[Rfam]
This 103-nucleotide RNA from Actinophytocola xanthii belongs to the Rfam family "Glycine riboswitch aptamer". The organism belongs to Actinophytocola, within Bacteria. A search with the family's covariance model found it, with a score of 60 bits.

RNA sequence: AGAUCCCACGCGGGAGAGUCCGAGCGGCCGGUGCGGGUCGGCUCGGCGCCGAAGGAGCAAAUCCUCCCCGGAACCUCUCAGGCACCCGAACCGCGCGGGCGAG
Numbered sequence: 001a002g003a004u005c006c007c008a009c010g011c012g013g014g015a016g017a018g019u020c021c022g023a024g025c026g027g028c029c030g031g032u033g034c035g036g037g038u039c040g041g042c043u044c045g046g047c048g049c050c051g052a053a054g055g056a057g058c059a060a061a062u063c064c065u066c067c068c069c070g071g072a073a074c075c076u077c078u079c080a081g082g083c084a085c086c087c088g089a090a091c092c093g094c095g096c097g098g099g100c101g102a103g
Stems, first nucleotide, its partner, number of pairs: 006098002009095005020046006048083003051079002055077003062070001
Dot-bracket structure: .....((.(((((......((((((...............)))))).(((((..(((....(.......)....))))).))).......))))).)).....